[Rfam]
RNA sequence: GGCGAAGAAUGUCAGCUUUGGGCCCCGGCCGGCUGACUGGCAACCCUCCACUGUGGCGGGGUGCCGCCGGGGAUAAGCCGGGUGACAUGGGUGUCAUGUCGCAAGCACAGGGA
Numbered sequence: 001g002g003c004g005a006a007g008a009a010u011g012u013c014a015g016c017u018u019u020g021g022g023c024c025c026c027g028g029c030c031g032g033c034u035g036a037c038u039g040g041c042a043a044c045c046c047u048c049c050a051c052u053g054u055g056g057c058g059g060g061g062u063g064c065c066g067c068c069g070g071g072g073a074u075a076a077g078c079c080g081g082g083u084g085a086c087a088u089g090g091g092u093g094u095c096a097u098g099u100c101g102c103a104a105g106c107a108c109a110g111g112g113a
Stems, first nucleotide, its partner, number of pairs: 001079003009038001011037006021030002039065003044061003048056002082102009
Record summary:
Rfam assigns this 113-nucleotide sequence from Kitasatospora indigofera to the family "SAM (S-adenosyl methionine) riboswitch aptamer". Lineage of the source: Bacteria > Actinomycetota > Actinomycetes > Kitasatosporales > Kitasatospora. From the family's description: SAM-IV is a mRNA element that regulates gene expression via direct sensing of S-adenosylmethionine (SAM or AdoMet). SAM-IV riboswitches share conserved nucleotide positions with the previously described SAM-I riboswitches sequence analysis and molecular recognition experiments suggest that SAM-I and SAM-IV riboswitches share similar ligand binding sites, but have different scaffolds.